[Rfam]
A member of the RNA family "Vault RNA" from Eptatretus burgeri, 104 nucleotides long. From the family's description: This family of RNAs are found as part of the enigmatic vault ribonucleoprotein complex. The complex consists of a major vault protein (MVP), two minor vault proteins (VPARP and TEP1), and several small untranslated RNA molecules. It has been suggested that the vault complex is involved in drug resistance. Rfam classes the family as a non-coding RNA gene. A reference for the family is Stadler et al. (2009), "Evolution of Vault RNAs", Mol Biol Evol. Pairs were carried over by alignment from the consensus structure, which is taken from published work. Lineage of the source: Eukaryota > Opisthokonta > Bilateria > Deuterostomia > Eptatretus. It scores 42 bits against the family's covariance model.
RNA sequence: GCGCUGGCAUGGCAUGGUGGUUACUUCGCCUCAUUUGUUAUGAUCCUCUGGUUUGAGCUCUGCGUUCAAACCCGUGAACACCACUCGCAUUAUCCAGUGUUUUU
Numbered sequence: 001g002c003g004c005u006g007g008c009a010u011g012g013c014a015u016g017g018u019g020g021u022u023a024c025u026u027c028g029c030c031u032c033a034u035u036u037g038u039u040a041u042g043a044u045c046c047u048c049u050g051g052u053u054u055g056a057g058c059u060c061u062g063c064g065u066u067c068a069a070a071c072c073c074g075u076g077a078a079c080a081c082c083a084c085u086c087g088c089a090u091u092a093u094c095c096a097g098u099g100u101u102u103u104u
Base pairs, nucleotide, nucleotide: 002099003098004097005096006095007094012088013087017084018083019082020081025078026077027076028075029074